The record is a 362-nucleotide sequence from Plicatura crispa, which matches "Nuclear RNase P" in Rfam. From the family's description: Ribonuclease P (RNase P) is a ubiquitous endoribonuclease, found in archaea, bacteria and eukarya as well as chloroplasts and mitochondria. Its best characterised activity is the generation of mature 5'-ends of tRNAs by cleaving the 5'-leader elements of precursor-tRNAs. Cellular RNase Ps are ribonucleoproteins. It scores 77 bits against the family's covariance model. Rfam classes the family as a ribozyme. The organism belongs to Plicatura crispa, within Eukaryota.

Nucleotides: 362
Base pairs, nucleotide, nucleotide: 001362002361003360004359007356008355009354012305013304014303015302016301017300018299020059021058022057023056024055033048034047035046036045038043070346071345072344073343074342086233087232088231089230097111098110099109100108101107112127113126114125115124116123117122129229130228131227132226133225134224147215148214149213306334307333308332309331310330311329
Number, partner (000 for none) and nucleotide at each position: 001362a002361c003360a004359g005000c006000u007356c008355g009354a010000a011000a012305g013304c014303c015302g016301c017300g018299a019000g020059g021058c022057u023056c024055a025000c026000u027000c028000c029000g030000c031000a032000c033048a034047g035046g036045a037000c038043u039000a040000u041000c042000c043038a044000a045036u046035c047034c048033u049000u050000u051000c052000u053000c054000g055024u056023g057022a058021g059020c060000g061000g062000g063000c064000u065000a066000a067000g068000g069000u070346c071345u072344g073343a074342g075000c076000a077000u078000u079000c080000u081000a082000g083000u084000g085000c086233c087232c088231c089230c090000g091000c092000a093000g094000a095000c096000a097111g098110a099109c100108u101107c102000u103000a104000g105000c106000a107101g108100g109099g110098u111097c112127c113126g114125g115124u116123g117122u118000c119000a120000a121000c122117a123116c124115g125114c126113c127112g128000a129229g130228c131227g132226a133225c134224g135000c136000a137000c138000c139000a140000g141000a142000a143000a144000a145000a146000c147215g148214g149213c150000g151000g152000g153000c154000a155000c156000g157000c158000u159000c160000u161000u162000u163000g164000a165000u166000c167000c168000c169000g170000a171000a172000g173000a174000u175000c176000c177000u178000u179000c180000g181000u182000g183000u184000c185000a186000a187000c188000g189000g190000a191000g192000g193000g194000g195000a196000g197000g198000g199000c200000a201000c202000g203000g204000g205000c206000g207000u208000g209000u210000c211000g212000u213149g214148c215147u216000u217000u218000g219000g220000g221000a222000u223000a224134c225133g226132u227131c228130g229129u230089g231088g232087g233086g234000a235000c236000c237000g238000a239000g240000c241000g242000g243000g244000g245000c246000g247000g248000u249000g250000u251000g252000u253000g254000c255000g256000g257000u258000g259000u260000c261000c262000g263000u264000a265000u266000g267000g268000g269000c270000g271000c272000c273000g274000u275000c276000g277000c278000c279000g280000u281000u282000u283000c284000g285000u286000u287000c288000u289000u290000u291000a292000g293000c294000u295000c296000a297000c298000u299018u300017c301016g302015c303014g304013g305012c306334u307333c308332g309331u310330g311329a312000a313000u314000a315000c316000g317000c318000c319000a320000u321000u322000c323000a324000u325000u326000u327000g328000g329311u330310c331309a332308c333307g334306a335000a336000a337000c338000u339000c340000g341000a342074u343073u344072c345071a346070g347000a348000c349000u350000a351000c352000u353000c354009u355008u356007g357000g358000g359004c360003u361002g362001u